[Rfam]
RNA: Mammalian CPEB3 ribozyme
Organism: Alligator mississippiensis
RNA sequence: UUUACACAUGCUGGCCAGAGCAGGAGCAUUCAUAUUGCAGCUCCUGUCAGAUGCCUCAAAUCUGUAAAUUUUGCU
Numbered sequence: 001u002u003u004a005c006a007c008a009u010g011c012u013g014g015c016c017a018g019a020g021c022a023g024g025a026g027c028a029u030u031c032a033u034a035u036u037g038c039a040g041c042u043c044c045u046g047u048c049a050g051a052u053g054c055c056u057c058a059a060a061u062c063u064g065u066a067a068a069u070u071u072u073g074c075u
Stems, first nucleotide, its partner, number of pairs: 013042003019075007026038003048064005